[Rfam]
RNA sequence: UUCCCCUACGGACAUCCAGGUCCGCCGCAUCUCCUGGGACCGUGGGGCUUUGGUCGGUUCAGUAGCAGCAAGAGUGGCCUCCUCAAGUGGUCUGCAACUGGACCGGCCAUCCU
Numbered sequence: 001u002u003c004c005c006c007u008a009c010g011g012a013c014a015u016c017c018a019g020g021u022c023c024g025c026c027g028c029a030u031c032u033c034c035u036g037g038g039a040c041c042g043u044g045g046g047g048c049u050u051u052g053g054u055c056g057g058u059u060c061a062g063u064a065g066c067a068g069c070a071a072g073a074g075u076g077g078c079c080u081c082c083u084c085a086a087g088u089g090g091u092c093u094g095c096a097a098c099u100g101g102a103c104c105g106g107c108c109a110u111c112c113u
Base pairs, nucleotide, nucleotide: 004047005046006045007044008043009042010041015038016037017036018035019034020033052108053107054106055105056104057103058102059101060100061099062098

EcpR1: a 113-nucleotide RNA sequence from Cohaesibacter marisflavi. Perviously named SmelC291, SmrC10, or Sra33. According to its overproduction phenotype it was renamed Elongated Cell Phenotype RNA1. Induced by stress,EcpR1 negatively regulates cell cycle master regulatory genes dnaA and gcrA at post-transcriptional level by base pairing between its strongly conserved GC-rich loop and the target mRNAs. A reference for the family is Wilms et al. (2012), "Deep sequencing uncovers numerous small RNAs on all four replicons of the plant pathogen Agrobacterium tumefaciens", RNA Biol. Pairs were carried over by alignment from the consensus structure, which was predicted with WAR. It scores 73 bits against the family's covariance model.